[Rfam]
RNA sequence: AACUUUCGGAAUCCGCGCGGAGAUUUCAUCAGACGCCAACUUAUUAGGGCUGAUCAGACGUCCAAGAUAAGUGAAGUU
Dot-bracket structure: .(((((....(((...(.((.(.(((.(((.....................))).)))).)))..)))....))))).
mir-3492 microRNA precursor family: a 78-nucleotide RNA sequence from Schistosoma bovis. Pairs were carried over by alignment from the consensus structure, which was predicted with RNAalifold. Gene Ontology terms of the family: miRNA-mediated post-transcriptional gene silencing and RISC complex. Rfam 15.1 lists 21,496 matches to the family in 13 species.